[Rfam]
RNA sequence: CUUCAUAAUCAAGCGCCAGGACUGCUCGGAGUAGCAGUUGACGAGGAAGAGGUUAAUCGAAACUUUCGGCGGAUGCCUCUCGGGCUCUUCACACCCGGAAGCCAAGGCUUGAAAACGGAUGGGCAACCAUGCGGACAAGAGUCUGGCCGUGAACCAA
Numbered sequence: 001c002u003u004c005a006u007a008a009u010c011a012a013g014c015g016c017c018a019g020g021a022c023u024g025c026u027c028g029g030a031g032u033a034g035c036a037g038u039u040g041a042c043g044a045g046g047a048a049g050a051g052g053u054u055a056a057u058c059g060a061a062a063c064u065u066u067c068g069g070c071g072g073a074u075g076c077c078u079c080u081c082g083g084g085c086u087c088u089u090c091a092c093a094c095c096c097g098g099a100a101g102c103c104a105a106g107g108c109u110u111g112a113a114a115a116c117g118g119a120u121g122g123g124c125a126a127c128c129a130u131g132c133g134g135a136c137a138a139g140a141g142u143c144u145g146g147c148c149g150u151g152a153a154c155c156a157a
Stems, first nucleotide, its partner, number of pairs: 020039007048080005057069004081097004103146001105144004116133002119130004
RNA: glmS glucosamine-6-phosphate activated ribozyme aptamer